[Rfam]
RNA sequence: GUCACUGCAUGACCCGCUCUGGCUAAACCCUUCCAGGGCAGCCAGGGUGGUGAUGGUCUGUGAC
Numbered sequence: 001g002u003c004a005c006u007g008c009a010u011g012a013c014c015c016g017c018u019c020u021g022g023c024u025a026a027a028c029c030c031u032u033c034c035a036g037g038g039c040a041g042c043c044a045g046g047g048u049g050g051u052g053a054u055g056g057u058c059u060g061u062g063a064c
Base pairs, nucleotide, nucleotide: 001064002063003062004061005060014050015049016048017047018046019045020044021043022042023041029038030037031036
Dot-bracket structure: (((((........((((((((((.....(((....)))..)))))))))).........)))))
Notes:
Shown here is a 64-nucleotide RNA sequence from Oryctolagus cuniculus, a member of the family "Selenocysteine insertion sequence 1". Rfam classes the family as a cis-regulatory element. The incorporation of selenocysteine into a protein sequence is directed by an in-frame UGA codon (usually a stop codon) within the coding region of the mRNA. Selenoprotein mRNAs contain a conserved secondary structure in the 3' UTR that is required for the distinction of UGA stop from UGA selenocysteine. Pairs were carried over by alignment from the consensus structure, which is taken from published work.